[Rfam]
RNA sequence: GUCGCAAGUUCAUAGGCUACAUCAGAAGGGCUCAGAGCACAGUCCGUCAGAUUCCAAUGAAUCUGCAAAAUCUGCU
Numbered sequence: 001g002u003c004g005c006a007a008g009u010u011c012a013u014a015g016g017c018u019a020c021a022u023c024a025g026a027a028g029g030g031c032u033c034a035g036a037g038c039a040c041a042g043u044c045c046g047u048c049a050g051a052u053u054c055c056a057a058u059g060a061a062u063c064u065g066c067a068a069a070a071u072c073u074g075c076u
Base pairs, nucleotide, nucleotide: 015044016043017042018041021076023074024073025072026071028040030038048065049064050063051062052061053060054059
A member of the RNA family "Mammalian CPEB3 ribozyme" from Alligator mississippiensis, 76 nucleotides long. The match comes from Rfam's covariance-model search (38 bits). NCBI's taxonomy places the organism under Eukaryota, Craniata, Vertebrata, Teleostomi, Alligator. The base pairs follow the family's consensus structure, which is taken from published work. The mammalian CPEB3 ribozyme is a self cleaving RNA located in the second intron of the CPEB3 gene which belongs to a family of genes regulating messenger RNA polyadenylation.